[Rfam]
RNA sequence: UCCGCCUUAGCUCAGUUGGUAGAGCGCUUGACUGUUAAUCAGGAUGUCGUCAGUUCGAGUCUGACAGGCGGA
Numbered sequence: 001u002c003c004g005c006c007u008u009a010g011c012u013c014a015g016u017u018g019g020u021a022g023a024g025c026g027c028u029u030g031a032c033u034g035u036u037a038a039u040c041a042g043g044a045u046g047u048c049g050u051c052a053g054u055u056c057g058a059g060u061c062u063g064a065c066a067g068g069c070g071g072a
Stems, first nucleotide, its partner, number of pairs: 001072007010025004027043005049065005